RNA: TPP riboswitch aptamer (THI element)
RNA sequence: GUUAUAGUCAAAGGGAGCUGUGAGUUACGGCUGAGAGGGAAUGGUUCGAUUCCGACCUUCUGACCUGAUCCGGAUAAUACCGGCGAAGGGAUUGACGGUUCGUCACUGU
Numbered sequence: 001g002u003u004a005u006a007g008u009c010a011a012a013g014g015g016a017g018c019u020g021u022g023a024g025u026u027a028c029g030g031c032u033g034a035g036a037g038g039g040a041a042u043g044g045u046u047c048g049a050u051u052c053c054g055a056c057c058u059u060c061u062g063a064c065c066u067g068a069u070c071c072g073g074a075u076a077a078u079a080c081c082g083g084c085g086a087a088g089g090g091a092u093u094g095a096c097g098g099u100u101c102g103u104c105a106c107u108g109u
Base pairs, nucleotide, nucleotide: 007096008095009094010093011059012058013057014056017031018030019029020028021027038053039052040051041050042049064089065088066087070083071082072081073080